A member of the RNA family "Small nucleolar RNA SNORD100" from Poecilia reticulata, 83 nucleotides long.

RNA sequence: UGUGUCAGUGAUGACAACUUGGCUCCCUCUACUGAACCCUGUGAGGAGAUUGCCUUUGUUACCCAAUUUUGAUCUGAGAUGCA
Numbered sequence: 001u002g003u004g005u006c007a008g009u010g011a012u013g014a015c016a017a018c019u020u021g022g023c024u025c026c027c028u029c030u031a032c033u034g035a036a037c038c039c040u041g042u043g044a045g046g047a048g049a050u051u052g053c054c055u056u057u058g059u060u061a062c063c064c065a066a067u068u069u070u071g072a073u074c075u076g077a078g079a080u081g082c083a
Stems, first nucleotide, its partner, number of pairs: 001083006
A reference for the family is Galardi et al. (2002), "Purified box C/D snoRNPs are able to reproduce site-specific 2'-O-methylation of target RNA in vitro", Mol Cell Biol. The base pairs follow the family's consensus structure, which was predicted with RNAalifold. Clan: SNORD100 clan. NCBI's taxonomy places the organism under Eukaryota, Actinopterygii, Actinopteri, Clupeocephala, Poecilia.